[Rfam]
RNA sequence: GCUUCUAAUGAUGUUGUUUCUACAAAACUUUCGUUCUCCUGAGCUUGUCAGUGCUGAGAAACUGGAGACCUGAACUGAAGAGCA
Numbered sequence: 001g002c003u004u005c006u007a008a009u010g011a012u013g014u015u016g017u018u019u020c021u022a023c024a025a026a027a028c029u030u031u032c033g034u035u036c037u038c039c040u041g042a043g044c045u046u047g048u049c050a051g052u053g054c055u056g057a058g059a060a061a062c063u064g065g066a067g068a069c070c071u072g073a074a075c076u077g078a079a080g081a082g083c084a
Stems, first nucleotide, its partner, number of pairs: 003082004
RNA: Small nucleolar RNA Z159/U59
Organism: Prunus armeniaca